[Rfam]
Shown here is a 69-nucleotide RNA, a member of the family "DUF3800-IX RNA". From the family's description: Actinobacteria, Firmicutes (1 example), Nitrospirae, Proteobacteria, Verrucomicrobia (1 example). The base pairs follow the family's consensus structure, which is taken from published work. The family's RNA type in Rfam is small RNA.

RNA sequence: UCUUUACGAGCUGAACCGCCGCCGGAUGGCGUGCUUGUCUGAGAAAUCAGACUAGGCCGUAAAGACGAA
Numbered sequence: 001u002c003u004u005u006a007c008g009a010g011c012u013g014a015a016c017c018g019c020c021g022c023c024g025g026a027u028g029g030c031g032u033g034c035u036u037g038u039c040u041g042a043g044a045a046a047u048c049a050g051a052c053u054a055g056g057c058c059g060u061a062a063a064g065a066c067g068a069a
Base pairs, nucleotide, nucleotide: 001065002064003063004062005061006060007059008058010057011056012055018034019033020031021030022029023028037052038051039050040049041048